The record is a 103-nucleotide RNA from Streptomyces microflavus, which matches "NLPC-P60 RNA" in Rfam. NCBI's taxonomy places the organism under Bacteria, Bacillati, Actinomycetota, Kitasatosporales, Streptomyces. The match comes from Rfam's covariance-model search (79 bits).

[Rfam]
Nucleotides: 103
Stems, first nucleotide, its partner, number of pairs: 025057004031051003035047004061090004067083005
Number, partner (000 for none) and nucleotide at each position: 001000c002000g003000g004000u005000g006000c007000u008000u009000g010000c011000a012000u013000c014000a015000c016000c017000c018000g019000a020000c021000a022000c023000c024000g025057a026056g027055u028054g029000a030000c031051c032050g033049g034000a035047u036046u037045a038044a039000u040000c041000g042000g043000a044038u045037u046036a047035g048000c049033u050032c051031g052000c053000u054028c055027a056026c057025u058000u059000g060000u061090g062089g063088a064087c065000g066000a067083g068082c069081c070080c071079g072000a073000c074000u075000c076000a077000u078000c079071c080070g081069g082068g083067c084000c085000c086000g087064g088063u089062c090061u091000c092000c093000g094000u095000c096000a097000c098000g099000g100000a101000g102000g103000u